[Rfam]
RNA: Streptomyces sRNA 4677
RNA sequence: CGUUCCGGUAUCCCACGGCAUCAGAGACGUAAGGAACCCGCGAAACACCUCACCAAGCCCCACCACCCUCCCGUCACCCGCACAGGUGAAUGCCUCCAACGUGACGGGUGUGUGGGCCCGUUGGCUGGCAUAGGCUCCAGCCGAGAAACCCGCAUCAUCCGUACGACAACCGCACACACGCCGUACGGCAACGGCACACACGCUGUAAGACCACCGCACACCGCACACCGCACACCGCACACCGCACACAUGCAACGGCCCCCGGCCGGGACUGGCAUCCCGAUCGAGGGCCUGACCACCCAGGAAGAAGACGCUUCCCG
Numbered sequence: 001c002g003u004u005c006c007g008g009u010a011u012c013c014c015a016c017g018g019c020a021u022c023a024g025a026g027a028c029g030u031a032a033g034g035a036a037c038c039c040g041c042g043a044a045a046c047a048c049c050u051c052a053c054c055a056a057g058c059c060c061c062a063c064c065a066c067c068c069u070c071c072c073g074u075c076a077c078c079c080g081c082a083c084a085g086g087u088g089a090a091u092g093c094c095u096c097c098a099a100c101g102u103g104a105c106g107g108g109u110g111u112g113u114g115g116g117c118c119c120g121u122u123g124g125c126u127g128g129c130a131u132a133g134g135c136u137c138c139a140g141c142c143g144a145g146a147a148a149c150c151c152g153c154a155u156c157a158u159c160c161g162u163a164c165g166a167c168a169a170c171c172g173c174a175c176a177c178a179c180g181c182c183g184u185a186c187g188g189c190a191a192c193g194g195c196a197c198a199c200a201c202g203c204u205g206u207a208a209g210a211c212c213a214c215c216g217c218a219c220a221c222c223g224c225a226c227a228c229c230g231c232a233c234a235c236c237g238c239a240c241a242c243c244g245c246a247c248a249c250a251u252g253c254a255a256c257g258g259c260c261c262c263c264g265g266c267c268g269g270g271a272c273u274g275g276c277a278u279c280c281c282g283a284u285c286g287a288g289g290g291c292c293u294g295a296c297c298a299c300c301c302a303g304g305a306a307g308a309a310g311a312c313g314c315u316u317c318c319c320g
Stems, first nucleotide, its partner, number of pairs: 007300003018070001074089005105230003257292005263286002268281004303318005